Background
Rfam assigns this 85-nucleotide RNA from Solanum commersonii to the family "MIR8024 microRNA precursor family". Pairs were carried over by alignment from the consensus structure, which was predicted with RNAalifold. Lineage of the source: Eukaryota > Streptophytina > eudicotyledons > Solanaceae > Solanum. A search with the family's covariance model found it, with a score of 66 bits.
RNA sequence: UUGAGGAAUUUGAAGACUUCUAUUUGCAGACUUGAAGAAUUUAAAGACUUCAACUUGCAUACUUAGAGAUUUUGAAGACUUAUCU
Numbered sequence: 001u002u003g004a005g006g007a008a009u010u011u012g013a014a015g016a017c018u019u020c021u022a023u024u025u026g027c028a029g030a031c032u033u034g035a036a037g038a039a040u041u042u043a044a045a046g047a048c049u050u051c052a053a054c055u056u057g058c059a060u061a062c063u064u065a066g067a068g069a070u071u072u073u074g075a076a077g078a079c080u081u082a083u084c085u
Stems, first nucleotide, its partner, number of pairs: 002082003006079001009076006017068003025059004032053006